[Rfam]
RNA sequence: UAACUGGUGAAAGUCCAGUCUAGGUAAGAGCCAAGUCGCCUAGUAGCUGACAGGCAAUUGGUGGAGUAAUCCUAAGGUUGAAGCCCUGUGACAGCAACUUUACAGGUUGUAACAUAA
Number, nucleotide and partner (000 for none) at each position: 001u000002a000003a000004c000005u000006g000007g000008u000009g000010a000011a000012a000013g000014u000015c000016c000017a000018g000019u000020c043021u042022a041023g040024g039025u000026a000027a000028g000029a000030g000031c000032c000033a000034a000035g000036u000037c000038g000039c024040c023041u022042a021043g020044u000045a000046g000047c000048u000049g000050a089051c088052a087053g086054g085055c080056a079057a078058u077059u076060g000061g000062u000063g000064g071065a070066g000067u000068a000069a000070u065071c064072c000073u000074a000075a000076g059077g058078u057079u056080g055081a000082a000083g000084c000085c054086c053087u052088g051089u050090g000091a000092c000093a000094g110095c109096a108097a000098c000099u000100u000101u000102a000103c000104a000105g000106g000107u000108u096109g095110u094111a000112a000113c000114a000115u000116a000117a000